[Rfam]
RNA sequence: GAAAAACAUAAAUAAGGUACAUGUAUAGGCUUAUGAAUUGGCGUAAGCGUUUCUACCAAAUGACCGUAAUCAUUGGACUACAUGUGAACGUUAGAGGGGU
Numbered sequence: 001g002a003a004a005a006a007c008a009u010a011a012a013u014a015a016g017g018u019a020c021a022u023g024u025a026u027a028g029g030c031u032u033a034u035g036a037a038u039u040g041g042c043g044u045a046a047g048c049g050u051u052u053c054u055a056c057c058a059a060a061u062g063a064c065c066g067u068a069a070u071c072a073u074u075g076g077a078c079u080a081c082a083u084g085u086g087a088a089c090g091u092u093a094g095a096g097g098g099g100u
Base pairs, nucleotide, nucleotide: 018086019085020084021083022082023081024080025079029048030047031046032045033044034043035042057076059074060073061072062071063070
Source information
Purine riboswitch aptamer: a 100-nucleotide RNA from Amphibacillus xylanus. The source organism's lineage runs through Bacteria, Caryophanales, Bacillaceae, Amphibacillus and Amphibacillus xylanus.